[Rfam]
RNA: SAM riboswitch aptamer (S box leader)
Organism: Bacillus sp. V59.32b
RNA sequence: UUCUUAUCCAGAGAGGUCGAGGGAAUGGCCCUAAGACGCCUCAGCAACCUUCCAUGUAUUUUCGUCAUUGGAAAGGUGCUAAAUCCAUCAAGUUAUUUGGAACUUGAGAGAUAAGGA
Numbered sequence: 001u002u003c004u005u006a007u008c009c010a011g012a013g014a015g016g017u018c019g020a021g022g023g024a025a026u027g028g029c030c031c032u033a034a035g036a037c038g039c040c041u042c043a044g045c046a047a048c049c050u051u052c053c054a055u056g057u058a059u060u061u062u063c064g065u066c067a068u069u070g071g072a073a074a075g076g077u078g079c080u081a082a083a084u085c086c087a088u089c090a091a092g093u094u095a096u097u098u099g100g101a102a103c104u105u106g107a108g109a110g111a112u113a114a115g116g117a
Stems, first nucleotide, its partner, number of pairs: 001117008013042005021031003025088004043080004048076002051072004084109001089106006